[Rfam]
RNA sequence: GGUUCUUUAACUUAACCGGUAAAGUGUGUUCUUGAUAAGGAUAUGUUCAGUGUUCGAGUCACUGAAGAAUCA
Numbered sequence: 001g002g003u004u005c006u007u008u009a010a011c012u013u014a015a016c017c018g019g020u021a022a023a024g025u026g027u028g029u030u031c032u033u034g035a036u037a038a039g040g041a042u043a044u045g046u047u048c049a050g051u052g053u054u055c056g057a058g059u060c061a062c063u064g065a066a067g068a069a070u071c072a
Stems, first nucleotide, its partner, number of pairs: 001071007010025004027043005048064005

Overview: A member of the RNA family "tRNA" from Aspergillus nidulans, 72 nucleotides long. The base pairs follow the family's consensus structure, which is taken from published work. Transfer RNA (tRNA) molecules are approximately 80 nucleotides in length. Their secondary structure includes four short double-helical elements and three loops (D, anti-codon, and T loops). Further hydrogen bonds mediate the characteristic L-shaped molecular structure. tRNAs have two regions of fundamental functional importance: the anti-codon, which is responsible for specific mRNA codon recognition, and the 3' end, to which the tRNAs corresponding amino acid is attached (by aminoacyl-tRNA synthetases). tRNAs cope with the degeneracy of the genetic code in two manners: having more than one tRNA (with a specific anti-codon) for a particular amino acid; and 'wobble' base-pairing, i.e. permitting non-standard base-pairing at the 3rd anti-codon position. Rfam's curators put it in the seed alignment.